RNA sequence: GUCAGGGUGAGUCGGGCUGGUGCUCAGACGAGACUUCAACUUUCGGGGUAUGGGGAUAUGCGGGAGUUCGAUUCUCCCUCCUUGAC
Numbered sequence: 001g002u003c004a005g006g007g008u009g010a011g012u013c014g015g016g017c018u019g020g021u022g023c024u025c026a027g028a029c030g031a032g033a034c035u036u037c038a039a040c041u042u043u044c045g046g047g048g049u050a051u052g053g054g055g056a057u058a059u060g061c062g063g064g065a066g067u068u069c070g071a072u073u074c075u076c077c078c079u080c081c082u083u084g085a086c
Base pairs, nucleotide, nucleotide: 001086002085003084004083005082006081007080009078012027014025015024016023017022029045030044031043032042033041048061049060050059051058052057063077064076065075066074

The record is an 86-nucleotide RNA from Polarella glacialis, which matches "Selenocysteine transfer RNA" in Rfam. Lineage of the source: Eukaryota > Alveolata > Dinophyceae > Suessiaceae > Polarella. The match comes from Rfam's covariance-model search (53 bits).